Source information
ALIL pseudoknot: a 117-nucleotide sequence. By type it is a cis-regulatory element. A search with the family's covariance model found it, with a score of 106 bits. The family has 26 seed sequences and 2,146 matches in Rfam 15.1. The family's consensus secondary structure is taken from published work.

[Rfam]
RNA sequence: CGCAUAUUUCGCACGGGCGGAGCUCGACCGCCGACCGAAGUCAUGAUUGCGUUCAUCAACGAUCAUCGCGCAGUCUACGGGGUCGAGCCGAUCUGCCGGUUCUUGCCGAUCGCCCCG
Numbered sequence: 001c002g003c004a005u006a007u008u009u010c011g012c013a014c015g016g017g018c019g020g021a022g023c024u025c026g027a028c029c030g031c032c033g034a035c036c037g038a039a040g041u042c043a044u045g046a047u048u049g050c051g052u053u054c055a056u057c058a059a060c061g062a063u064c065a066u067c068g069c070g071c072a073g074u075c076u077a078c079g080g081g082g083u084c085g086a087g088c089c090g091a092u093c094u095g096c097c098g099g100u101u102c103u104u105g106c107c108g109a110u111c112g113c114c115c116c117g
Stems, first nucleotide, its partner, number of pairs: 016032005078117005089112002092109002095106002098103001
Dot-bracket structure: ...............(((((.......))))).............................................(((((......((.((.((.(....).)).)).)))))))